[Rfam]
RNA: SAM riboswitch aptamer (S box leader)
Organism: Collinsella sp. AK_207A
RNA sequence: UAUUCAUCCAGAGCCGGGGUAGAGAGUUGGCUCGUUGAUCCCGGCACCAACCAGGCCAAGAAGGCCAACGGUGGUACUGCCAACACCGAUGAAGG
Numbered sequence: 001u002a003u004u005c006a007u008c009c010a011g012a013g014c015c016g017g018g019g020u021a022g023a024g025a026g027u028u029g030g031c032u033c034g035u036u037g038a039u040c041c042c043g044g045c046a047c048c049a050a051c052c053a054g055g056c057c058a059a060g061a062a063g064g065c066c067a068a069c070g071g072u073g074g075u076a077c078u079g080c081c082a083a084c085a086c087c088g089a090u091g092a093a094g095g
Stems, first nucleotide, its partner, number of pairs: 001095001003093006013045001015043004022033003027083004046075004051071002054066003079087001